[Rfam]
RNA sequence: GCUUGUUCUCGGGGCGGGGUGAAACUCCCCACCGGCGGUAUGAAGCGAAAGUUUCGAGCCCGCGAGCGCCUGAAAAGAUGCCGAUUCGGCUUUGUUCAGGGUCAGCAGAUCCGGUGAGAUGCCGGAGCCGACGGUUAAAGUCCGGAUGGAAGAGAGCGAAU
Dot-bracket structure: ..((((((((......(((.......))).[[((((((...................[[))))..((.....................................))...(((((.......)))))]])).(((.....]]))).......))))))))..

This 161-nucleotide RNA sequence from Brucella anthropi belongs to the Rfam family "FMN riboswitch aptamer (RFN element)".
Lineage of the source: Bacteria > Pseudomonadati > Alphaproteobacteria > Brucella > Brucella anthropi.
Pairs were carried over by alignment from the consensus structure, which is taken from published work.
Its family is annotated with FMN binding in the Gene Ontology.
The literature on the family includes a 2002 paper in Proc Natl Acad Sci U S A by Winkler et al., "An mRNA structure that controls gene expression by binding FMN".